[Rfam]
Nucleotides: 246
Stems, first nucleotide, its partner, number of pairs: 010245004017238002024231005030224002034220002039184004043179006049172002051169001053167003057163002062089001064087001066085001069081004094160006107146002109143001112139005118134001120132005187214001190213006197206002
Number, partner (000 for none) and nucleotide at each position: 001000g002000u003000g004000a005000a006000g007000u008000g009000a010245u011244g012243a013242u014000g015000a016000u017238g018237u019000u020000u021000a022000u023000c024231c025230a026229u027228u028227c029000u030224c031223u032000g033000a034220g035219u036000g037000c038000a039184g040183c041182u042181g043179c044178c045177c046176u047175g048174c049172c050171c051169u052000c053167c054166c055165u056000g057163c058162a059000g060000c061000a062089c063000c064087c065000a066085g067000a068000u069081u070080c071079c072078u073000g074000u075000u076000c077000u078072a079071g080070g081069g082000u083000c084000u085066c086000c087064g088000u089062g090000c091000u092000g093000u094160g095159c096158a097157g098156c099155c100000u101000c102000c103000a104000g105000a106000u107146g108145u109143c110000u111000u112139c113138a114137a115136c116135c117000u118134u119000u120132c121131a122130g123129u124128g125000u126000u127000c128124u129123a130122c131121u132120g133000u134118g135116g136115g137114u138113u139112g140000c141000c142000a143109g144000u145108g146107u147000g148000u149000c150000u151000g152000g153000c154000u155099g156098g157097c158096u159095g160094c161000c162058u163057g164000c165055a166054g167053g168000u169051g170000u171050g172049g173000a174048g175047c176046a177045g178044g179043g180000c181042c182041a183040g184039c185000a186000a187214a188000g189000c190213u191212a192211g193210a194209g195208c196000u197206c198205c199000u200000c201000u202000c203000u204000g205198g206197g207000g208195g209194c210193u211192c212191u213190g214187u215000c216000u217000g218000a219035a220034c221000u222000a223031a224030g225000a226000c227028g228027a229026a230025u231024g232000a233000u234000g235000c236000u237018g238017u239000c240000u241000g242013a243012u244011c245010a246000c